[Rfam]
RNA sequence: UUGAUCUUAAUGACGUGAAUGGAGUAAAGCUUUUGAGACCUUCAUUUGCUGAUGCAGCAUGAUCAA
Numbered sequence: 001u002u003g004a005u006c007u008u009a010a011u012g013a014c015g016u017g018a019a020u021g022g023a024g025u026a027a028a029g030c031u032u033u034u035g036a037g038a039c040c041u042u043c044a045u046u047u048g049c050u051g052a053u054g055c056a057g058c059a060u061g062a063u064c065a066a
Stems, first nucleotide, its partner, number of pairs: 001066005015049010030037002